The record is a 102-nucleotide sequence from Halalkalibacillus sediminis, which matches "Purine riboswitch aptamer" in Rfam. The source organism's lineage runs through Bacteria, Bacillati, Bacillota, Bacilli and Halalkalibacillus.
RNA sequence: GAAAUGACAAUAGCAUACCCUCAUAUAACGUUGAGAAUAUGGCUCAAAAGUUUCUACCCGGUCGCCGUAAACGACUGGACUAUGGGGGAGUACUCUGCACAU
Dot-bracket structure: .................((((((((.....(((((.......)))))..........(((((((.......)))))))..))))))))..............
The family's consensus secondary structure is taken from published work.